[Rfam]
A member of the RNA family "MIR397 microRNA precursor family" from Musa acuminata, 100 nucleotides long. Gene Ontology terms of the family: miRNA-mediated post-transcriptional gene silencing and RISC complex. The family has 7 seed sequences and 496 matches in Rfam 15.1. Taxonomically the source falls in Musa acuminata (Eukaryota, Streptophyta, Euphyllophyta, Petrosaviidae).
RNA sequence: GUCGAAGGCAUUAUUGGGUGCAGCGUUGGUGAAAGCCCCCAUGUUCCUAUUCAUCAGGGAAACUGGAUUCUCAUCAACGCUGCACUCAAUGAUGCCUUCG
Number, nucleotide and partner (000 for none) at each position: 001g000002u000003c000004g000005a000006a097007g096008g095009c094010a093011u092012u000013a090014u089015u088016g087017g086018g085019u084020g083021c082022a081023g080024c079025g078026u077027u076028g075029g000030u073031g072032a071033a000034a000035g000036c000037c000038c000039c000040c000041a000042u000043g000044u000045u000046c000047c000048u000049a000050u000051u000052c000053a000054u000055c000056a000057g000058g000059g000060a000061a000062a000063c000064u000065g000066g000067a000068u000069u000070c000071u032072c031073a030074u000075c028076a027077a026078c025079g024080c023081u022082g021083c020084a019085c018086u017087c016088a015089a014090u013091g000092a011093u010094g009095c008096c007097u006098u000099c000100g000